[Rfam]
RNA sequence: UCCCAAUGAAGAAACAUCCACAUGUCUUACUUCCUGUCCUAGUUCCAGAGCCUGAAAAGGUGAACCCACUGGAACUGGCUGGGGGAAAAGAGGAAAAUUUUGUUCCAAAAUGGAAUGUCUGAGGGAU
Number, nucleotide and partner (000 for none) at each position: 001u126002c125003c124004c123005a000006a000007u000008g000009a000010a000011g000012a000013a000014a000015c000016a000017u000018c000019c000020a000021c000022a000023u000024g000025u000026c000027u000028u000029a000030c000031u000032u000033c000034c000035u000036g000037u000038c000039c000040u000041a000042g000043u000044u000045c000046c000047a000048g000049a000050g000051c000052c000053u000054g000055a000056a000057a000058a000059g000060g000061u000062g000063a000064a000065c000066c000067c000068a000069c000070u000071g000072g000073a000074a000075c000076u000077g000078g000079c000080u000081g000082g000083g000084g000085g000086a000087a000088a000089a000090g000091a000092g000093g000094a000095a000096a000097a000098u000099u000100u000101u000102g000103u000104u000105c000106c000107a000108a000109a000110a000111u000112g000113g000114a000115a000116u000117g000118u000119c000120u000121g000122a000123g004124g003125g002126a001127u000
Description:
Small nucleolar RNA SNORD22: a 127-nucleotide RNA from Jaculus jaculus. Rfam classes the family as a C/D-box small nucleolar RNA. Taxonomically the source falls in Jaculus (Eukaryota, Teleostomi, Euarchontoglires, Glires).